Rfam assigns this 45-nucleotide RNA from Guyparkeria sp. XI15 to the family "Guanidine-II riboswitch aptamer (mini-ykkC)". NCBI's taxonomy places the organism under Bacteria, Pseudomonadota, Gammaproteobacteria, Thioalkalibacteraceae, Guyparkeria. Its family is annotated with regulation of gene expression in the Gene Ontology. A search with the family's covariance model found it, with a score of 39 bits.
[Rfam]
RNA sequence: CCGGGGACGACCCCGGGCGAGAGUUUCCCCGGCGGGACGGCCCGC
Numbered sequence: 001c002c003g004g005g006g007a008c009g010a011c012c013c014c015g016g017g018c019g020a021g022a023g024u025u026u027c028c029c030c031g032g033c034g035g036g037a038c039g040g041c042c043c044g045c
Stems, first nucleotide, its partner, number of pairs: 001016006032045005